Notes: Shown here is a 71-nucleotide RNA sequence from Owenia fusiformis, a member of the family "Small nucleolar RNA SNORD18". The base pairs follow the family's consensus structure, which was predicted with PFOLD. Rfam classes the family as a C/D-box small nucleolar RNA. The organism belongs to Owenia, within Eukaryota.

[Rfam]
RNA sequence: UAAAAAUGAUGAUUUUAACCAUCUCCAUUGGUCCGUGUUUCUGACAAGUGAUGUGCGAGCUCUCUGAUUUA
Numbered sequence: 001u002a003a004a005a006a007u008g009a010u011g012a013u014u015u016u017a018a019c020c021a022u023c024u025c026c027a028u029u030g031g032u033c034c035g036u037g038u039u040u041c042u043g044a045c046a047a048g049u050g051a052u053g054u055g056c057g058a059g060c061u062c063u064c065u066g067a068u069u070u071a
Stems, first nucleotide, its partner, number of pairs: 001071004